RNA sequence: UAGAAUAAUGUAGGUAAGGGAAGUCGGCAAAUUGGAUCCGUAACUUCGGGAUAAGGAUUGGCUCUGAGGAUCGGGGCGCGUCGGGCUUGGUCGGGAAGCGGGUACUGGCUGACGUGCCGGGCCUGGCCGAGGUGAAGUGGCGUCUCGCGACGUUCGCGGAACCGAGUCCGGUCCCGUGCCUUGGCCUCCCACGGAACUUCCUUGCUGCGAGGCUCGGCGGGCGGCUCGCCCGUCUGCCGAUGUCCUCUUCGGCCGCCAUUCAACGAUCGGCUCAGAACUGGCACGGACUAGGGGAAUCCGACUGUCUAAUUAAAACAAAGCAUUGCGAUGGCCCCUGCGGGUGUUGACGCAAUGUGAUUUCUGCCCAGUGCUCUGAAUGUCAACGUGAAGAAAUUCAAGCAAGCGCGGGUAAACGGCGGGAGUAACUAUGACUCUCUUAAGGUAGCCAAAUGCCUCGUCAUCUAAUUAGUGACGCGCAUGAAUGGAUUAACGAGAUUCCCACUGUCCCUACCUACUAUCUAGCGAAACCACUGCCAAGGGAACGGGCUUGGAAAA
Numbered sequence: 001u002a003g004a005a006u007a008a009u010g011u012a013g014g015u016a017a018g019g020g021a022a023g024u025c026g027g028c029a030a031a032u033u034g035g036a037u038c039c040g041u042a043a044c045u046u047c048g049g050g051a052u053a054a055g056g057a058u059u060g061g062c063u064c065u066g067a068g069g070a071u072c073g074g075g076g077c078g079c080g081u082c083g084g085g086c087u088u089g090g091u092c093g094g095g096a097a098g099c100g101g102g103u104a105c106u107g108g109c110u111g112a113c114g115u116g117c118c119g120g121g122c123c124u125g126g127c128c129g130a131g132g133u134g135a136a137g138u139g140g141c142g143u144c145u146c147g148c149g150a151c152g153u154u155c156g157c158g159g160a161a162c163c164g165a166g167u168c169c170g171g172u173c174c175c176g177u178g179c180c181u182u183g184g185c186c187u188c189c190c191a192c193g194g195a196a197c198u199u200c201c202u203u204g205c206u207g208c209g210a211g212g213c214u215c216g217g218c219g220g221g222c223g224g225c226u227c228g229c230c231c232g233u234c235u236g237c238c239g240a241u242g243u244c245c246u247c248u249u250c251g252g253c254c255g256c257c258a259u260u261c262a263a264c265g266a267u268c269g270g271c272u273c274a275g276a277a278c279u280g281g282c283a284c285g286g287a288c289u290a291g292g293g294g295a296a297u298c299c300g301a302c303u304g305u306c307u308a309a310u311u312a313a314a315a316c317a318a319a320g321c322a323u324u325g326c327g328a329u330g331g332c333c334c335c336u337g338c339g340g341g342u343g344u345u346g347a348c349g350c351a352a353u354g355u356g357a358u359u360u361c362u363g364c365c366c367a368g369u370g371c372u373c374u375g376a377a378u379g380u381c382a383a384c385g386u387g388a389a390g391a392a393a394u395u396c397a398a399g400c401a402a403g404c405g406c407g408g409g410u411a412a413a414c415g416g417c418g419g420g421a422g423u424a425a426c427u428a429u430g431a432c433u434c435u436c437u438u439a440a441g442g443u444a445g446c447c448a449a450a451u452g453c454c455u456c457g458u459c460a461u462c463u464a465a466u467u468a469g470u471g472a473c474g475c476g477c478a479u480g481a482a483u484g485g486a487u488u489a490a491c492g493a494g495a496u497u498c499c500c501a502c503u504g505u506c507c508c509u510a511c512c513u514a515c516u517a518u519c520u521a522g523c524g525a526a527a528c529c530a531c532u533g534c535c536a537a538g539g540g541a542a543c544g545g546g547c548u549u550g551g552a553a554a555a
Base pairs, nucleotide, nucleotide: 001521002520003519004518010515011514012513013512014511015510016509018507019506020505035059036058037057038056039055044049060279061278063276064275065274066273067272068271069268070267071266072265073264075257076256077255078254080253081252082251083250084249085205086204089201090200098192100190101189102187105184106183107182108181116177117176119174120173121172122171123170125168126167127166280284292500293499294498295497296496297495298494299492300491303317304316305315320355321354322353323352324351325350326349327348331342332341333340334339359486360485361484363417364416365415368414369413370410371409372408373407375406378405379404380403386397387396388395389394418436419435420434421433422432423431437441457473458472459471460470461469534551535550536549537548538547

Rfam assigns this 555-nucleotide part of an RNA from Oryctes borbonicus to the family "Eukaryotic large subunit ribosomal RNA". The source organism's lineage runs through Eukaryota, Opisthokonta, Bilateria, Allotriocarida and Oryctes. The base pairs follow the family's consensus structure, which is taken from published work. It scores 2976 bits against the family's covariance model.